[Rfam]
RNA sequence: AUACAUUCAACGCUGAGUUCCUGCAUUUGCAGGGAACGGGGGAACCAUCAGGCCACAUGGCCUACUUGGGGUGAAUCCGAAGGAGACUGUUCAAGUCUCACAUAGGUAGGGCGACUCUCACCGUCCGAAUCCGACAGCUAACCUCGUAAGCGUAAAGAGAGAGACC
Numbered sequence: 001a002u003a004c005a006u007u008c009a010a011c012g013c014u015g016a017g018u019u020c021c022u023g024c025a026u027u028u029g030c031a032g033g034g035a036a037c038g039g040g041g042g043a044a045c046c047a048u049c050a051g052g053c054c055a056c057a058u059g060g061c062c063u064a065c066u067u068g069g070g071g072u073g074a075a076u077c078c079g080a081a082g083g084a085g086a087c088u089g090u091u092c093a094a095g096u097c098u099c100a101c102a103u104a105g106g107u108a109g110g111g112c113g114a115c116u117c118u119c120a121c122c123g124u125c126c127g128a129a130u131c132c133g134a135c136a137g138c139u140a141a142c143c144u145c146g147u148a149a150g151c152g153u154a155a156a157g158a159g160a161g162a163g164a165c166c
Base pairs, nucleotide, nucleotide: 011152012151013150014149018035019034020033021032022031023030024029036147037146038145039144040143041142046068047067069132070131071130077106078105080103109126110125111124112123
Dot-bracket structure: ..........((((...(((((((....)))))))((((((....((...................))(((.....((.(......................).))..((((..........))))...))).........)))))).))))..............